The family of this 102-nucleotide RNA from Planomicrobium sp. CPCC 101110 is "Purine riboswitch aptamer". Lineage of the source: Bacteria > Bacilli > Caryophanales > Caryophanaceae > Planomicrobium.
Nucleotides: 102
Stems, first nucleotide, its partner, number of pairs: 020086006029049001031047005058078007
Number, partner (000 for none) and nucleotide at each position: 001000g002000a003000c004000c005000a006000u007000u008000c009000u010000a011000a012000u013000a014000u015000a016000u017000u018000c019000a020086c021085u022084c023083a024082u025081a026000u027000a028000a029049u030000a031047g032046c033045g034044g035043g036000a037000a038000u039000a040000u041000g042000g043035c044034c045033c046032g047031c048000a049029a050000g051000u052000u053000u054000c055000u056000a057000c058078c059077g060076g061075u062074u063073u064072g065000c066000c067000g068000u069000u070000a071000a072064c073063a074062a075061a076060c077059c078058g079000a080000c081025u082024a083023u084022g085021a086020g087000a088000a089000g090000c091000a092000a093000c094000g095000g096000a097000a098000u099000g100000a101000u102000a